[Rfam]
RNA sequence: UUAUUGAAGUAGAAACAUCCGUUUCUCACCUGUUGACAGAUGGUUUGCAGGUCUGUACCCUAUUUUUUUGUGUGCAAAGCAACGGAUGUUUUAUCCGUUGCUUUUUUAUUUAU
Number, nucleotide and partner (000 for none) at each position: 001u000002u000003a000004u000005u000006g000007a000008a000009g000010u000011a026012g025013a024014a023015a022016c021017a000018u000019c000020c000021g016022u015023u014024u013025c012026u011027c000028a052029c051030c050031u000032g000033u000034u047035g046036a044037c043038a000039g000040a000041u000042g000043g037044u036045u000046u035047g034048c000049a000050g030051g029052u028053c000054u000055g000056u000057a000058c000059c000060c000061u000062a000063u000064u000065u000066u000067u000068u000069u000070g000071u000072g000073u000074g000075c000076a000077a000078a000079g000080c100081a099082a098083c097084g096085g095086a094087u093088g092089u000090u000091u000092u088093a087094u086095c085096c084097g083098u082099u081100g080101c000102u000103u000104u000105u000106u000107u000108a000109u000110u000111u000112a000113u000
Source information
Shown here is a 113-nucleotide sequence from Peptostreptococcaceae bacterium oral taxon 113, a member of the family "Ribosomal protein L20 leader". This family is a putative r-protein leader autoregulatory structure found in B. subtilis and other low-GC Gram-positive bacteria. It is located in the 5' untranslated regions of mRNAs encoding initiation factor 3 followed by ribosomal proteins L35 and L20 (infC-rpmI-rplT). Lineage of the source: Bacteria > Bacillati > Peptostreptococcales > Peptostreptococcaceae > Peptostreptococcaceae bacterium oral taxon 113.